[Rfam]
RNA sequence: GGUGAUAAACGCGCACGUAAUACGCGGAUCGGACCCGGGGGCGGUACCCGGCGGCUCCACCAACACCCCGUUCAUUGGCGGGCGAUGGGGCCGAAACAGGAUCGACGGACGUCUAAAGGUGUUUGCUUUUACCCGGUGAGGUACCACCGUUAUCGGUCCGACAUGUACAGUUGCCAAUGACAACCGUGCUCCGGUGGCGCUCGCAGCGUAA
Numbered sequence: 001g002g003u004g005a006u007a008a009a010c011g012c013g014c015a016c017g018u019a020a021u022a023c024g025c026g027g028a029u030c031g032g033a034c035c036c037g038g039g040g041g042c043g044g045u046a047c048c049c050g051g052c053g054g055c056u057c058c059a060c061c062a063a064c065a066c067c068c069c070g071u072u073c074a075u076u077g078g079c080g081g082g083c084g085a086u087g088g089g090g091c092c093g094a095a096a097c098a099g100g101a102u103c104g105a106c107g108g109a110c111g112u113c114u115a116a117a118g119g120u121g122u123u124u125g126c127u128u129u130u131a132c133c134c135g136g137u138g139a140g141g142u143a144c145c146a147c148c149g150u151u152a153u154c155g156g157u158c159c160g161a162c163a164u165g166u167a168c169a170g171u172u173g174c175c176a177a178u179g180a181c182a183a184c185c186g187u188g189c190u191c192c193g194g195u196g197g198c199g200c201u202c203g204c205a206g207c208g209u210a211a
Base pairs, nucleotide, nucleotide: 001133002132003131004130005129013122014121015120016119025111026110029108030107031106035051036050037049038048039047052093053092054091055090056089057088058087134149135148136147137146
Source information: The family of this 211-nucleotide RNA from Paroceanicella profunda is "permuted transfer-messenger RNA". The literature on the family includes a 2003 paper in Nucleic Acids Res by Zwieb et al., "tmRDB (tmRNA database)". A search with the family's covariance model found it, with a score of 140 bits. Pairs were carried over by alignment from the consensus structure, which is taken from published work. Lineage of the source: Bacteria > Pseudomonadota > Alphaproteobacteria > Rhodobacterales > Paroceanicella. It is annotated as a non-coding RNA gene.